[Rfam]
This 152-nucleotide RNA sequence from Anaerocolumna aminovalerica belongs to the Rfam family "FMN riboswitch aptamer (RFN element)".
A search with the family's covariance model found it, with a score of 113 bits.
Lineage of the source: Bacteria > Clostridia > Lachnospirales > Lachnospiraceae > Anaerocolumna.
RNA sequence: GAAAUUCUUCGGGGCAGGGUGUAAUUCCCGACCGGCGGUAUAGUCCGCGACCCGAAUGACAAACAUGGAGGUAAUAAGCUACAUGAUAGUCGUUCGGCUGAUUUGGUGUAAUUCCAAAACCGACAGUAAAGUCUGGAUGUGAGAAGAAAAAG
Numbered sequence: 001g002a003a004a005u006u007c008u009u010c011g012g013g014g015c016a017g018g019g020u021g022u023a024a025u026u027c028c029c030g031a032c033c034g035g036c037g038g039u040a041u042a043g044u045c046c047g048c049g050a051c052c053c054g055a056a057u058g059a060c061a062a063a064c065a066u067g068g069a070g071g072u073a074a075u076a077a078g079c080u081a082c083a084u085g086a087u088a089g090u091c092g093u094u095c096g097g098c099u100g101a102u103u104u105g106g107u108g109u110a111a112u113u114c115c116a117a118a119a120c121c122g123a124c125a126g127u128a129a130a131g132u133c134u135g136g137a138u139g140u141g142a143g144a145a146g147a148a149a150a151a152g
Stems, first nucleotide, its partner, number of pairs: 005148006017029003031132002033122002035048004043120002052097009102118005124135003